[Rfam]
RNA sequence: GAAGUCCCGUCCGGGGAGUUGUCCGUACGCCUCGGUAGCAUGAGGAAGCGGCGCCGUGGCGACACGGGGUCGUGAGUUUCCCAACAGCAAGAGAGCAGGCCGUAACGGAAGUGAACCUAUGAGUAGCCUCGUAAACAAAGUGGAGGAGCCGACCCUGUGGUCAGAAGGGGAAGGCCGUUGGAAGGGUGCUGGAAUAACGGAAGUGGCACUCAUCGACUCCCGGGGUAGCAGGGAU
Numbered sequence: 001g002a003a004g005u006c007c008c009g010u011c012c013g014g015g016g017a018g019u020u021g022u023c024c025g026u027a028c029g030c031c032u033c034g035g036u037a038g039c040a041u042g043a044g045g046a047a048g049c050g051g052c053g054c055c056g057u058g059g060c061g062a063c064a065c066g067g068g069g070u071c072g073u074g075a076g077u078u079u080c081c082c083a084a085c086a087g088c089a090a091g092a093g094a095g096c097a098g099g100c101c102g103u104a105a106c107g108g109a110a111g112u113g114a115a116c117c118u119a120u121g122a123g124u125a126g127c128c129u130c131g132u133a134a135a136c137a138a139a140g141u142g143g144a145g146g147a148g149c150c151g152a153c154c155c156u157g158u159g160g161u162c163a164g165a166a167g168g169g170g171a172a173g174g175c176c177g178u179u180g181g182a183a184g185g186g187u188g189c190u191g192g193a194a195u196a197a198c199g200g201a202a203g204u205g206g207c208a209c210u211c212a213u214c215g216a217c218u219c220c221c222g223g224g225g226u227a228g229c230a231g232g233g234a235u
Stems, first nucleotide, its partner, number of pairs: 012034005019025001022202001036090001038088002042085001044081002046078002048073005054067005123229001124227001126226006142220004148175003153169004181214002184211007
This 235-nucleotide RNA from Candidatus Accumulibacter aalborgensis belongs to the Rfam family "Group II catalytic intron D1-D4-6". Rfam links the family to the GO term Group II intron splicing. It scores 71 bits against the family's covariance model. From the family's description: Group II introns are found in rRNA, tRNA and mRNA of organelles in fungi, plants and protists, and also in mRNA in bacteria.